[Rfam]
RNA sequence: CUAGAUCUUCGGGGCAGGGUGAAAUUCCCUACCGGCGGUAUUUUCCUCUAUCGGAAUGAGCCCGCGACUCCCAGGCAUUCAGACUGCAAGGGACUGAUUUGGUUAGAAUCCAAAGCCGACGGUAUAGUCCGGAUGGAAGAAGAUCAGC
Numbered sequence: 001c002u003a004g005a006u007c008u009u010c011g012g013g014g015c016a017g018g019g020u021g022a023a024a025u026u027c028c029c030u031a032c033c034g035g036c037g038g039u040a041u042u043u044u045c046c047u048c049u050a051u052c053g054g055a056a057u058g059a060g061c062c063c064g065c066g067a068c069u070c071c072c073a074g075g076c077a078u079u080c081a082g083a084c085u086g087c088a089a090g091g092g093a094c095u096g097a098u099u100u101g102g103u104u105a106g107a108a109u110c111c112a113a114a115g116c117c118g119a120c121g122g123u124a125u126a127g128u129c130c131g132g133a134u135g136g137a138a139g140a141a142g143a144u145c146a147g148c
Base pairs, nucleotide, nucleotide: 004145005144006143007142008141009140010139017029018028019027031128032127033118034117035065036064037063038062060116061115069093070092071091072090098114099113100112101111102110120131121130122129

Rfam assigns this 148-nucleotide RNA sequence from Cohnella thailandensis to the family "FMN riboswitch aptamer (RFN element)". The RFN element is a highly conserved domain that is found frequently in the 5'-untranslated regions of prokaryotic mRNAs that encode for flavin mononucleotide (FMN) biosynthesis and transport proteins. For this family Rfam cites "Coenzyme recognition and gene regulation by a flavin mononucleotide riboswitch" (Serganov et al., Nature, 2009). Gene Ontology term of the family: FMN binding.